[Rfam]
RNA sequence: AGGGGGAGUGCAGGAUCCUGGGCAGUGUCCCCCAGCACCCUGGGAUCUGGGGCCUGUGCCACUGGAAUCACGCUCGUGGGGCCUGGAGCCCCCU
Numbered sequence: 001a002g003g004g005g006g007a008g009u010g011c012a013g014g015a016u017c018c019u020g021g022g023c024a025g026u027g028u029c030c031c032c033c034a035g036c037a038c039c040c041u042g043g044g045a046u047c048u049g050g051g052g053c054c055u056g057u058g059c060c061a062c063u064g065g066a067a068u069c070a071c072g073c074u075c076g077u078g079g080g081g082c083c084u085g086g087a088g089c090c091c092c093c094u
Base pairs, nucleotide, nucleotide: 001094002093003092004091005090006089011085012084013083014082017079018078021075022074025071026070027069028066029065032064035059036058037057038056042054044053046051
Shown here is a 94-nucleotide RNA sequence from Canis lupus, a member of the family "mir-8799 microRNA precursor family". The base pairs follow the family's consensus structure, which was predicted with RNAalifold. The organism belongs to Canis lupus, within Eukaryota. The family has 7 seed sequences and 20,638 matches in Rfam 15.1. Its family is annotated with miRNA-mediated post-transcriptional gene silencing and RISC complex in the Gene Ontology. A search with the family's covariance model found it, with a score of 48 bits. Clan: mir-8791 microRNA precursor clan.